[Rfam]
Shown here is a 97-nucleotide RNA sequence from Burkholderia sp. YI23, a member of the family "Burkholderia sRNA Bp1_Cand612_SIPHT".
It is annotated as a small RNA.
The family's consensus secondary structure was predicted with RNAalifold.

RNA sequence: AAAAAAAAUGGGCGCAACGCCCAUCUUUUUCAACCGAGAUCGCACUCAGGGCAGAAAGAAAACUACGUGCCCAGCGACUUCAUGAUUUUAGCCAUUU
Numbered sequence: 001a002a003a004a005a006a007a008a009u010g011g012g013c014g015c016a017a018c019g020c021c022c023a024u025c026u027u028u029u030u031c032a033a034c035c036g037a038g039a040u041c042g043c044a045c046u047c048a049g050g051g052c053a054g055a056a057a058g059a060a061a062a063c064u065a066c067g068u069g070c071c072c073a074g075c076g077a078c079u080u081c082a083u084g085a086u087u088u089u090a091g092c093c094a095u096u097u
Stems, first nucleotide, its partner, number of pairs: 008024007037088006048080003052076001